[Rfam]
The record is a 113-nucleotide sequence from Dyella sp. AD56, which matches "t44 RNA" in Rfam.
RNA sequence: AUUGGACACCUAAAACGCCACACACGCGUCGACACCGCCUUCGGGGUGCCCUGACCAGCCUUCCAUAAAUUGGGCUGACGGGGUCGAAGCCGGGGAUACGUGGAGGUCCCAAC
Numbered sequence: 001a002u003u004g005g006a007c008a009c010c011u012a013a014a015a016c017g018c019c020a021c022a023c024a025c026g027c028g029u030c031g032a033c034a035c036c037g038c039c040u041u042c043g044g045g046g047u048g049c050c051c052u053g054a055c056c057a058g059c060c061u062u063c064c065a066u067a068a069a070u071u072g073g074g075c076u077g078a079c080g081g082g083g084u085c086g087a088a089g090c091c092g093g094g095g096a097u098a099c100g101u102g103g104a105g106g107u108c109c110c111a112a113c
Stems, first nucleotide, its partner, number of pairs: 023102004028097003035093003039089005048084005

By type it is a small RNA. This family consists of a number of bacterial RNA genes of between 135 and 170 bases in length. The t44 gene has been identified in several species of enteric bacteria but homologs have also been identified in Pseudomonas and Coxiella species. The t44 gene is found between the map and rpsB genes in all species in the full alignment apart from Shigella flexneri.